[Rfam]
RNA sequence: UCGAAUUCUCAGGGCGGGGCGAAAUUCCCCACCGGCGGUAGUUCAAACAGCAGAGUCUGCCAUUUGAAAAGCCCGCGAGCGCUUAAAAGGUUUGUUACGCAACCAACCUUUUAAGGUCAGCAGAUCUGGUCCAGUACUUACUAUAAGUAUCAAUCCAGAGCCGACGGUUAUAGUCCGGAUGAAAGAGAAUCGGU
Numbered sequence: 001u002c003g004a005a006u007u008c009u010c011a012g013g014g015c016g017g018g019g020c021g022a023a024a025u026u027c028c029c030c031a032c033c034g035g036c037g038g039u040a041g042u043u044c045a046a047a048c049a050g051c052a053g054a055g056u057c058u059g060c061c062a063u064u065u066g067a068a069a070a071g072c073c074c075g076c077g078a079g080c081g082c083u084u085a086a087a088a089g090g091u092u093u094g095u096u097a098c099g100c101a102a103c104c105a106a107c108c109u110u111u112u113a114a115g116g117u118c119a120g121c122a123g124a125u126c127u128g129g130u131c132c133a134g135u136a137c138u139u140a141c142u143a144u145a146a147g148u149a150u151c152a153a154u155c156c157a158g159a160g161c162c163g164a165c166g167g168u169u170a171u172a173g174u175c176c177g178g179a180u181g182a183a184a185g186a187g188a189a190u191c192g193g194u
Base pairs, nucleotide, nucleotide: 005190006189007188008187009186010185017029018028019027031174032173033163034162035076036075037074038073071161072160079121080120125159126158127157128156129155165177166176167175
Rfam assigns this 194-nucleotide sequence from Photobacterium proteolyticum to the family "FMN riboswitch aptamer (RFN element)". The match comes from Rfam's covariance-model search (91 bits).